[Rfam]
RNA sequence: CCUGCUGUACGACCAGCAGUUGCCUACUUGGACAGGCGCGGUGGGUAACUACCGGGUCUGAAGCUCCAAGGACAAUGUACUCGUCCAAAGACGCCACGACUCGGUGACGAUGUGUGGUGACGCUGCGAGCCGCAAUGCGGCGUGGAGG
Numbered sequence: 001c002c003u004g005c006u007g008u009a010c011g012a013c014c015a016g017c018a019g020u021u022g023c024c025u026a027c028u029u030g031g032a033c034a035g036g037c038g039c040g041g042u043g044g045g046u047a048a049c050u051a052c053c054g055g056g057u058c059u060g061a062a063g064c065u066c067c068a069a070g071g072a073c074a075a076u077g078u079a080c081u082c083g084u085c086c087a088a089a090g091a092c093g094c095c096a097c098g099a100c101u102c103g104g105u106g107a108c109g110a111u112g113u114g115u116g117g118u119g120a121c122g123c124u125g126c127g128a129g130c131c132g133c134a135a136u137g138c139g140g141c142g143u144g145g146a147g148g
Stems, first nucleotide, its partner, number of pairs: 002019006028069005033060005039054006084091002092119004102109002122141006
RNA: Group II catalytic intron D1-D4-7